Potassium channel RNA editing signal: a 114-nucleotide RNA sequence from Eptatretus burgeri. Lineage of the source: Eukaryota > Craniata > Myxiniformes > Eptatretinae > Eptatretus. The base pairs follow the family's consensus structure, which is taken from published work. Rfam classes the family as a cis-regulatory element. A search with the family's covariance model found it, with a score of 103 bits. On this family, see Bhalla et al., Nat Struct Mol Biol 2004: "Control of human potassium channel inactivation by editing of a small mRNA hairpin".
RNA sequence: GUGGGAUAUGGAGACAUGUGGCCGAUAACCGUAGGAGGUAAAAUUGUAGGGUCACUUUGUGCUAUCGCUGGUGUACUUACUAUUGCACUUCCAGUGCCAGUCAUAGUUUCCAAC
Numbered sequence: 001g002u003g004g005g006a007u008a009u010g011g012a013g014a015c016a017u018g019u020g021g022c023c024g025a026u027a028a029c030c031g032u033a034g035g036a037g038g039u040a041a042a043a044u045u046g047u048a049g050g051g052u053c054a055c056u057u058u059g060u061g062c063u064a065u066c067g068c069u070g071g072u073g074u075a076c077u078u079a080c081u082a083u084u085g086c087a088c089u090u091c092c093a094g095u096g097c098c099a100g101u102c103a104u105a106g107u108u109u110c111c112a113a114c
Stems, first nucleotide, its partner, number of pairs: 001114002004111002008107002011104001013102003018097002021095002037077004049063002